About this RNA
Rfam assigns this 105-nucleotide RNA sequence from Vagococcus zengguangii to the family "23S methyl RNA motif". The family's RNA type in Rfam is cis-regulatory element. Its family is annotated with regulation of gene expression in the Gene Ontology. The organism belongs to Vagococcus, within Bacteria.
[Rfam]
RNA sequence: GUUUCAUUGAUUUUUCUCAGAUUCCUGUUCUGAUAAAAGUUAGUGAAUAAACCUCACUAACGUACGGACUCGCCGUGGACUGACACCGAGCCGCUACGUUUUUUU
Numbered sequence: 001g002u003u004u005c006a007u008u009g010a011u012u013u014u015u016c017u018c019a020g021a022u023u024c025c026u027g028u029u030c031u032g033a034u035a036a037a038a039g040u041u042a043g044u045g046a047a048u049a050a051a052c053c054u055c056a057c058u059a060a061c062g063u064a065c066g067g068a069c070u071c072g073c074c075g076u077g078g079a080c081u082g083a084c085a086c087c088g089a090g091c092c093g094c095u096a097c098g099u100u101u102u103u104u105u
Stems, first nucleotide, its partner, number of pairs: 003047013017033003059100006067092001069090004075086003